Manganese Mn2+ riboswitch aptamer (yybP-ykoY): a 172-nucleotide RNA from Methylibium petroleiphilum.
RNA sequence: CCACCCGUCAUCGGGGAGUAGCCGCCCUGCAUCCGUUGCAGGGGCUCGCGUCAACACACUUGGCCUGCAGGCCAUGGUGCGAGCAGCUUCCACAGCCUGGCAAGACCUUUGACCGCACAGCCUCCGCGUGGCCGGAGAGGCCGUGUGGUCAUUGCGUCAUCCGGCCCAGGAC
Number, nucleotide and partner (000 for none) at each position: 001c000002c000003a000004c000005c000006c000007g000008u000009c000010a000011u000012c000013g000014g000015g000016g000017a000018g000019u000020a000021g000022c000023c000024g000025c000026c042027c041028u040029g000030c000031a000032u000033c000034c000035g000036u000037u000038g000039c000040a028041g027042g026043g000044g084045c083046u082047c081048g080049c079050g078051u077052c076053a075054a000055c000056a000057c000058a000059c000060u000061u074062g073063g072064c071065c070066u000067g000068c000069a000070g065071g064072c063073c062074a061075u053076g052077g051078u050079g049080c048081g047082a046083g045084c044085a000086g000087c000088u000089u171090c170091c169092a000093c000094a000095g000096c000097c000098u000099g000100g000101c000102a000103a000104g000105a000106c000107c000108u000109u000110u000111g000112a000113c000114c000115g000116c000117a000118c000119a000120g000121c000122c000123u000124c000125c000126g000127c000128g000129u000130g000131g000132c000133c000134g000135g000136a000137g000138a000139g000140g000141c000142c000143g000144u000145g000146u000147g000148g000149u000150c000151a000152u000153u000154g000155c000156g000157u000158c000159a000160u000161c000162c000163g000164g000165c000166c000167c000168a000169g091170g090171a089172c000

About the family: This RNA was originally discovered in E. coli during a large scale screen and was named SraF. The family was later found to exist upstream of related families of protein genes in many bacteria, including the the yybP and ykoK genes in B. subtilis. The specific functions of these proteins are unknown, but this structured RNA element may be involved in their genetic regulation as a riboswitch.